[Rfam]
The family of this 204-nucleotide RNA from Medicago truncatula is "MIR2670 microRNA precursor family".
RNA sequence: UUGGGGGAAAAUAGUGGUCCAUUAAGUUGGGGAAAAAGACAUCAUCCCUUGAGAUAAAAUUAGGUUUGUUUCCUUUUACUCCCAAAAUCUUUUUACCGUGGGUAAAAGAAUCAAUAUGGGGGCAUAAAAGGAACUAAAUUUAAAUUUAACUCAAUGGGUCUUGAUGUUGUUUUCCCAACAGGACGGAUCACUAUUUUUCCCAAG
Dot-bracket structure: ...(((((((((((((((((.((..((((((((((.....(((((((.(((((.((((.(((((((((.((((((((.((((((...((.(((((((...))))))))).......)))))).)..))))))).))))))))).)))).))))).)))...))))....))))))))))..)).)))))))))))))))))...
Numbered sequence: 001u002u003g004g005g006g007g008a009a010a011a012u013a014g015u016g017g018u019c020c021a022u023u024a025a026g027u028u029g030g031g032g033a034a035a036a037a038g039a040c041a042u043c044a045u046c047c048c049u050u051g052a053g054a055u056a057a058a059a060u061u062a063g064g065u066u067u068g069u070u071u072c073c074u075u076u077u078a079c080u081c082c083c084a085a086a087a088u089c090u091u092u093u094u095a096c097c098g099u100g101g102g103u104a105a106a107a108g109a110a111u112c113a114a115u116a117u118g119g120g121g122g123c124a125u126a127a128a129a130g131g132a133a134c135u136a137a138a139u140u141u142a143a144a145u146u147u148a149a150c151u152c153a154a155u156g157g158g159u160c161u162u163g164a165u166g167u168u169g170u171u172u173u174c175c176c177a178a179c180a181g182g183a184c185g186g187a188u189c190a191c192u193a194u195u196u197u198u199c200c201c202a203a204g
Stems, first nucleotide, its partner, number of pairs: 004201017022183002026179010041165004045158003049154005055148004060143009070133007077124001079122006088109002091107007